[Rfam]
RNA sequence: AUGUGAAGUAGAGGUGCAGAUGUUCAUCAGUACUUGUUCUGAGGACGGGACCGGUGAAGAACAGGGAAAGGGAAUAUUUGCCGAAGUCCAAUUAUUUACCCGGAAAUUAGUUGGGCUGGGGCCGUAUCCGAACAGGAGCGGCACUGUCACAGAAGCCACUGCUUUUGUGGAGGGCUAUCUCACAG
Numbered sequence: 001a002u003g004u005g006a007a008g009u010a011g012a013g014g015u016g017c018a019g020a021u022g023u024u025c026a027u028c029a030g031u032a033c034u035u036g037u038u039c040u041g042a043g044g045a046c047g048g049g050a051c052c053g054g055u056g057a058a059g060a061a062c063a064g065g066g067a068a069a070g071g072g073a074a075u076a077u078u079u080g081c082c083g084a085a086g087u088c089c090a091a092u093u094a095u096u097u098a099c100c101c102g103g104a105a106a107u108u109a110g111u112u113g114g115g116c117u118g119g120g121g122c123c124g125u126a127u128c129c130g131a132a133c134a135g136g137a138g139c140g141g142c143a144c145u146g147u148c149a150c151a152g153a154a155g156c157c158a159c160u161g162c163u164u165u166u167g168u169g170g171a172g173g174g175c176u177a178u179c180u181c182a183c184a185g
Base pairs, nucleotide, nucleotide: 006180008178009177010176011175016081017080018079019078020077021076023074024073025072033065034064035063036062037061038060039059040058085117086116087115088114089113090112091111092110093109094108096106118145119144121142122141123140124139125138127136128135147170148169149168150167151166152165153164
A member of the RNA family "Lysine riboswitch aptamer" from Paenactinomyces guangxiensis, 185 nucleotides long. Rfam's curators write: Riboswitches are metabolite binding domains within certain messenger RNAs that serve as precision sensors for their corresponding targets. Allosteric rearrangement of mRNA structure is mediated by ligand binding, and this results in modulation of gene expression. This family includes riboswitches that sense lysine in a number of genes involved in lysine metabolism, including lysC. The base pairs follow the family's consensus structure, which is taken from published work. The source organism's lineage runs through Bacteria, Bacillota, Bacilli, Caryophanales and Paenactinomyces.